[Rfam]
RNA sequence: CCUUGAAGUAAUGUAGCAGCACAUAAUGGUUUGUGGGUUAUAUGGUGAUGCAGGCCAUAUUGUGCUGCGGCAUAAAUGCAAGG
Numbered sequence: 001c002c003u004u005g006a007a008g009u010a011a012u013g014u015a016g017c018a019g020c021a022c023a024u025a026a027u028g029g030u031u032u033g034u035g036g037g038u039u040a041u042a043u044g045g046u047g048a049u050g051c052a053g054g055c056c057a058u059a060u061u062g063u064g065c066u067g068c069g070g071c072a073u074a075a076a077u078g079c080a081a082g083g
Base pairs, nucleotide, nucleotide: 001083002082003081004080005079013071014070016068017067018066019065020064021063022062023061026058027057028056029055030054031053032052033051034050035049

The record is an 83-nucleotide sequence from Polypterus senegalus, which matches "mir-15 microRNA precursor family" in Rfam. A reference for the family is Lagos-Quintana et al. (2001), "Identification of novel genes coding for small expressed RNAs", Science. About the family: This family represents the related mir-15a and mir-15b sequences. In humans miR-15a and miR-16 are clustered within 0.5 kb at 13q14. This region has been shown to be deleted in more than half of B cell chronic lymphocytic leukaemias (CLL). Both miR-15a and miR-16 are deleted or down-regulated in more than two thirds of CLL cases.